[Rfam]
Nucleotides: 149
Base pairs, nucleotide, nucleotide: 001057002056003055004054015044016043017042018041019040020039024035025034085139087137088136102123104121105120106119107118
Number, partner (000 for none) and nucleotide at each position: 001057c002056c003055u004054c005000c006000u007000u008000u009000u010000c011000u012000u013000g014000g015044u016043g017042a018041g019040g020039a021000c022000c023000a024035g025034g026000c027000a028000u029000g030000u031000g032000g033000u034025u035024c036000c037000a038000c039020u040019u041018c042017u043016c044015a045000u046000u047000a048000c049000a050000u051000a052000c053000a054004g055003a056002g057001g058000c059000a060000a061000a062000a063000g064000g065000a066000a067000a068000g069000g070000g071000c072000u073000c074000a075000g076000g077000c078000c079000u080000u081000c082000u083000c084000u085139g086000c087137g088136u089000c090000u091000u092000g093000u094000c095000u096000g097000u098000g099000a100000u101000g102123u103000u104121a105120g106119c107118g108000g109000c110000u111000u112000c113000g114000c115000a116000u117000a118107u119106g120105c121104u122000c123102a124000u125000u126000c127000u128000a129000c130000c131000u132000u133000c134000a135000a136088a137087c138000a139085c140000c141000a142000a143000g144000a145000u146000a147000u148000g149000g